[Rfam]
RNA sequence: UUGUCUUCAGGGCCAGUGAGCCCUAAGAUUG
Numbered sequence: 001u002u003g004u005c006u007u008c009a010g011g012g013c014c015a016g017u018g019a020g021c022c023c024u025a026a027g028a029u030u031g
Stems, first nucleotide, its partner, number of pairs: 001031001003029005009024005014018001

Shown here is a 31-nucleotide sequence from Oxyruncus cristatus, a member of the family "Iron response element II". Lineage of the source: Eukaryota > Opisthokonta > Euteleostomi > Passeriformes > Oxyruncus. Rfam describes the family as follows. IRE, TFRC, SLC40A1, SDHB, SLC11A2, CDC42BPA, ACO2, ALAS2_H.SAPIENS, CDC14A, EPAS1, ALAS2, qoxD, Hao1, NDUFS1, transferrin, Aconitate. Rfam 15.1 lists 5,197 matches to the family in 722 species.